[Rfam]
RNA sequence: AAAAAAAAAAAAGAAAAAUCUUAAUCUCCUGAGACUUGUGAUGUUUUCAAAGGAGCCAUGUUU
Numbered sequence: 001a002a003a004a005a006a007a008a009a010a011a012a013g014a015a016a017a018a019u020c021u022u023a024a025u026c027u028c029c030u031g032a033g034a035c036u037u038g039u040g041a042u043g044u045u046u047u048c049a050a051a052g053g054a055g056c057c058a059u060g061u062u063u
Base pairs, nucleotide, nucleotide: 001063002062003061005059